[Rfam]
RNA sequence: UGAUGGCAAUGAUGAUUUUUUAAUGUAUUGCUCACCUGAUAAAUAAAUAUGAGGGUGUUCAGUCACUACCUCAUCUGAUGCCAUCU
Numbered sequence: 001u002g003a004u005g006g007c008a009a010u011g012a013u014g015a016u017u018u019u020u021u022a023a024u025g026u027a028u029u030g031c032u033c034a035c036c037u038g039a040u041a042a043a044u045a046a047a048u049a050u051g052a053g054g055g056u057g058u059u060c061a062g063u064c065a066c067u068a069c070c071u072c073a074u075c076u077g078a079u080g081c082c083a084u085c086u
Base pairs, nucleotide, nucleotide: 002085003084004083005082006081007080
Rfam assigns this 86-nucleotide RNA sequence from Tursiops truncatus to the family "Small nucleolar RNA SNORD11B". Its Rfam clan is "SNORD11 clan". For this family Rfam cites "snoSeeker: an advanced computational package for screening of guide and orphan snoRNA genes in the human genome" (Yang et al., Nucleic Acids Res, 2006). The base pairs follow the family's consensus structure, which was predicted with WAR.